[Rfam]
Rfam assigns this 94-nucleotide RNA from Halanaerobium praevalens to the family "THF (Tetrahydrofolate) riboswitch aptamer".
The match comes from Rfam's covariance-model search (69 bits).
RNA sequence: GAUAGAGUAGACAGAAGGCGUAGAGUGUUCAGAGAUGGGACGUCGCUCUGAAACGAAAGCUUAAAGCUGCGGUCUUGCUGUCGCGUCCGCUGUC
Number, nucleotide and partner (000 for none) at each position: 001g094002a093003u092004a091005g090006a000007g000008u000009a000010g082011a081012c080013a079014g078015a076016a075017g074018g073019c071020g070021u069022a000023g000024a000025g054026u053027g000028u052029u051030c050031a049032g048033a047034g046035a000036u000037g000038g088039g087040a086041c085042g084043u000044c000045g000046c034047u033048c032049u031050g030051a029052a028053a026054c025055g000056a000057a000058a068059g067060c066061u065062u000063a000064a000065a061066g060067c059068u058069g021070c020071g019072g000073u018074c017075u016076u015077g000078c014079u013080g012081u011082c010083g000084c042085g041086u040087c039088c038089g000090c005091u004092g003093u002094c001
A reference for the family is Ames et al. (2010), "A eubacterial riboswitch class that senses the coenzyme tetrahydrofolate", Chem Biol.